RNA sequence: ACAGAUCUUUUUGCGGUCUGGGCUUUCUGGGUCUAUAAAAUCCGUAUCAGAAAGCCCUUACCCCAAAAAGCAUCUG
Numbered sequence: 001a002c003a004g005a006u007c008u009u010u011u012u013g014c015g016g017u018c019u020g021g022g023c024u025u026u027c028u029g030g031g032u033c034u035a036u037a038a039a040a041u042c043c044g045u046a047u048c049a050g051a052a053a054g055c056c057c058u059u060a061c062c063c064c065a066a067a068a069a070g071c072a073u074c075u076g
Stems, first nucleotide, its partner, number of pairs: 007070007015062003020057004025052001027050002

The family of this 76-nucleotide sequence from Microcaecilia unicolor is "mir-129 microRNA precursor family". The family's consensus secondary structure was predicted with RNAalifold. A reference for the family is Lagos-Quintana et al. (2002), "Identification of tissue-specific microRNAs from mouse", Curr Biol. It scores 78 bits against the family's covariance model.